Shown here is a 391-nucleotide sequence from SAR116 cluster alpha proteobacterium HIMB100, a member of the family "Bacterial RNase P class A".

RNA sequence: GCAGAUGACCGGGUGGCUGCUGCUGGCCUGGAGCUGGCAGAGGAAAGUCCGGGCUUCACAGGAUCAGGAUGCUGGAUAACGUCCAGCGGGGGCGACCCCAGGGAAAGUGCCACAGAAAACAAACCGCCAGACCUUGUGUCUGGUAAGGGUGAAAAGGGGCGGUAAGAGCGCACCGCAGGGCUGGUGACAGGCCUGGCAGGGUAAACCCCAUCCGAAGCAAGACCAUGUAGGGGCAUAGCUGUUUGAUCAGCACUGGUGAUCCUGCCAGAGAUGUCCGGGUAGGUUGCAAGAGGUGUCUGGUAACAGGCAUCCCAGAUGAAUAGCCAUCAUCUGUGUUGCCCUGCUGAGGGCACCACAGAGACAGAACCCGGCUUACAGGUUAUCUGUUCCG
Number, nucleotide and partner (000 for none) at each position: 001g387002c386003a385004g384005a383006u382007g381008a380009c379010c378011g376012g328013g327014u326015g325016g324017c323018u322019g000020c040021u039022g038023c037024u036025g035026g034027c033028c000029u000030g000031g000032a000033g027034c026035u025036g024037g023038c022039a021040g020041a000042g000043g000044a000045a374046a373047g372048u000049c371050c370051g369052g368053g367054c217055u216056u215057c214058a000059c000060a000061g000062g262063a000064u000065c000066a000067g213068g212069a211070u210071g209072c086073u085074g084075g083076a082077u000078a000079a000080c000081g000082u076083c075084c074085a073086g072087c101088g099089g098090g097091g096092g000093c000094g000095a000096c091097c090098c089099c088100a000101g087102g208103g207104a000105a000106a000107g206108u205109g202110c201111c200112a000113c000114a000115g000116a000117a000118a000119a000120c000121a000122a000123a000124c148125c147126g144127c143128c142129a141130g140131a139132c138133c000134u000135u000136g000137u000138g132139u131140c130141u129142g128143g127144u126145a000146a000147g125148g124149g000150u000151g000152a000153a000154a000155a000156g174157g173158g000159g171160c170161g169162g000163u000164a000165a000166g000167a000168g000169c161170g160171c159172a000173c157174c156175g197176c195177a194178g193179g192180g000181c190182u189183g188184g000185u000186g000187a000188c183189a182190g181191g000192c179193c178194u177195g176196g000197c175198a000199g000200g111201g110202u109203a000204a000205a108206c107207c103208c102209c071210a070211u069212c068213c067214g057215a056216a055217g054218c000219a000220a000221g285222a284223c283224c282225a000226u000227g000228u000229a000230g000231g276232g275233g274234c273235a272236u271237a000238g000239c000240u000241g000242u000243u000244u000245g000246a000247u000248c000249a000250g000251c000252a000253c268254u267255g266256g265257u264258g000259a000260u000261c000262c062263u000264g257265c256266c255267a254268g253269a000270g000271a236272u235273g234274u233275c232276c231277g000278g000279g000280u000281a000282g224283g223284u222285u221286g000287c000288a000289a000290g000291a000292g311293g310294u309295g308296u307297c306298u305299g304300g000301u000302a000303a000304c299305a298306g297307g296308c295309a294310u293311c292312c000313c000314a000315g000316a000317u000318g000319a000320a000321u000322a018323g017324c016325c015326a014327u013328c012329a000330u000331c000332u000333g000334u000335g000336u000337u000338g000339c000340c000341c000342u000343g000344c000345u000346g000347a000348g000349g000350g000351c000352a000353c000354c000355a000356c000357a000358g000359a000360g000361a000362c000363a000364g000365a000366a000367c053368c052369c051370g050371g049372c047373u046374u045375a000376c011377a000378g010379g009380u008381u007382a006383u005384c004385u003386g002387u001388u000389c000390c000391g000
It scores 317 bits against the family's covariance model.